[Rfam]
RNA sequence: UAGUAUUGCCCAAAGGACUCUUAAGAAAAUAUGAUGUGUAGCUAUGGGAUCUCCAACUGCACUCGAGAGCAACCUGGAGAGACUUUGACAGCUCAGCUCAGGUCAGCUGCGUCUGUCACUCACCUUUCCUAUAAGA
Numbered sequence: 001u002a003g004u005a006u007u008g009c010c011c012a013a014a015g016g017a018c019u020c021u022u023a024a025g026a027a028a029a030u031a032u033g034a035u036g037u038g039u040a041g042c043u044a045u046g047g048g049a050u051c052u053c054c055a056a057c058u059g060c061a062c063u064c065g066a067g068a069g070c071a072a073c074c075u076g077g078a079g080a081g082a083c084u085u086u087g088a089c090a091g092c093u094c095a096g097c098u099c100a101g102g103u104c105a106g107c108u109g110c111g112u113c114u115g116u117c118a119c120u121c122a123c124c125u126u127u128c129c130u131a132u133a134a135g136a
Base pairs, nucleotide, nucleotide: 011047016043018041019040076129077128078127079126080125081124091116092115094109095108096107097106

A member of the RNA family "Small nucleolar RNA SNORA44" from Myotis brandtii, 136 nucleotides long. Pairs were carried over by alignment from the consensus structure, which was predicted with PFOLD. For this family Rfam cites "RNomics: an experimental approach that identifies 201 candidates for novel, small, non-messenger RNAs in mouse" (Huttenhofer et al., EMBO J, 2001). NCBI's taxonomy places the organism under Eukaryota, Opisthokonta, Amniota, Vespertilionidae, Myotis. Rfam 15.1 lists 1,056 matches to the family in 599 species. About the family: ACA44 is a member of the H/ACA class of snoRNA that guide the sites of modification of uridines to pseudouridines. The family's RNA type in Rfam is H/ACA-box small nucleolar RNA.